Rfam assigns this 128-nucleotide sequence from Aramus guarauna to the family "Small nucleolar RNA SNORA40". Lineage of the source: Eukaryota > Bilateria > Euteleostomi > Gruiformes > Aramus. Rfam describes the family as follows. The snoRNA ACA 40 belongs to the H/ACA family of snoRNAs and guides the pseudouridylation of 28S rRNA subunit at position U4565. NB This family has a high threshold value to exclude a large number of closely related sequences that do not appear to have conserved H and ACA boxes, and may be pseudogenes. It scores 60 bits against the family's covariance model. By type it is an H/ACA-box small nucleolar RNA.
RNA sequence: AGCACGUGUUCAGUUUUUGUCUGUUGCUGUAGACAAAAAAACUGGAACCUAGUGCUUAGAAAAAACCCUUCUUUUGCAACCCACAGCUGAUGUACGUAUUAGUUGUGUUACUUACAUGAAGGGACAGU
Numbered sequence: 001a002g003c004a005c006g007u008g009u010u011c012a013g014u015u016u017u018u019g020u021c022u023g024u025u026g027c028u029g030u031a032g033a034c035a036a037a038a039a040a041a042c043u044g045g046a047a048c049c050u051a052g053u054g055c056u057u058a059g060a061a062a063a064a065a066c067c068c069u070u071c072u073u074u075u076g077c078a079a080c081c082c083a084c085a086g087c088u089g090a091u092g093u094a095c096g097u098a099u100u101a102g103u104u105g106u107g108u109u110a111c112u113u114a115c116a117u118g119a120a121g122g123g124a125c126a127g128u
Base pairs, nucleotide, nucleotide: 001056002055003054004053005052008049010045014039015038016037017036018035019034020033025031067123068122069121072119073118075116076115082107083106084105085104086103087102088101089100090099091098